A member of the RNA family "Potassium channel RNA editing signal" from Octodon degus, 113 nucleotides long.
RNA sequence: CCAGGUAUGGAGACAUGGUACCAAAGACCAUCGCAGGGAAGAUUUUUGGCUCCAUCUGUUCGCUGAGUGGCGUCCUGGUCAUUGCCCUACCUGUCCCAGUGAUCGUGUCCAAC
Dot-bracket structure: ...(.(((((..((..((.((..............((((.........(...........)...........))))................))))..))..))))).)....

The source organism's lineage runs through Eukaryota, Eumetazoa, Craniata, Teleostomi and Octodon. Rfam classes the family as a cis-regulatory element. Pairs were carried over by alignment from the consensus structure, which is taken from published work.